[Rfam]
This 154-nucleotide RNA from Amborella trichopoda belongs to the Rfam family "MIR8565 microRNA precursor family". The base pairs follow the family's consensus structure, which was predicted with RNAalifold.
RNA sequence: UCCACAUCCAUGUAUGUAGGACCCCAAAGGAUCACUGUUAAAUUUGGCACAGAUCUCUAAAAAAGUUAUCACAUGGGUGUGAGUCUUGACUUAUAUAGAGAUCUGUGUCAAAUUUAAUGGUGAUCGUUUAGGGUCCUCCACACAUGGGUGUGGG
Numbered sequence: 001u002c003c004a005c006a007u008c009c010a011u012g013u014a015u016g017u018a019g020g021a022c023c024c025c026a027a028a029g030g031a032u033c034a035c036u037g038u039u040a041a042a043u044u045u046g047g048c049a050c051a052g053a054u055c056u057c058u059a060a061a062a063a064a065g066u067u068a069u070c071a072c073a074u075g076g077g078u079g080u081g082a083g084u085c086u087u088g089a090c091u092u093a094u095a096u097a098g099a100g101a102u103c104u105g106u107g108u109c110a111a112a113u114u115u116a117a118u119g120g121u122g123a124u125c126g127u128u129u130a131g132g133g134u135c136c137u138c139c140a141c142a143c144a145u146g147g148g149u150g151u152g153g154g
Stems, first nucleotide, its partner, number of pairs: 002153012015140002018137007026129003030125003034121026061094001063092006069082005

Lineage of the source: Eukaryota > Streptophyta > Embryophyta > Spermatophyta > Amborella.